[Rfam]
RNA sequence: GCAACAUCGGCUUCUCGCGCCAGAACCGGGUGGUGUUCCUGUCCAUGCUGGGCAACUCGUGGUUCUGGUUCUACGGCGCGCUGGUGCUGGCCCAGUUCCCCGUGUACGCCAAGGAUUACCUG
Numbered sequence: 001g002c003a004a005c006a007u008c009g010g011c012u013u014c015u016c017g018c019g020c021c022a023g024a025a026c027c028g029g030g031u032g033g034u035g036u037u038c039c040u041g042u043c044c045a046u047g048c049u050g051g052g053c054a055a056c057u058c059g060u061g062g063u064u065c066u067g068g069u070u071c072u073a074c075g076g077c078g079c080g081c082u083g084g085u086g087c088u089g090g091c092c093c094a095g096u097u098c099c100c101c102g103u104g105u106a107c108g109c110c111a112a113g114g115a116u117u118a119c120c121u122g
Base pairs, nucleotide, nucleotide: 009049010048011047013045017042018041019040022037023036025034026033051121052120055117057115058114060112062110064104067099068098071095072094075091077089078088080087081086
RNA: Burkholderia RNA 11
Organism: Rugamonas brunnea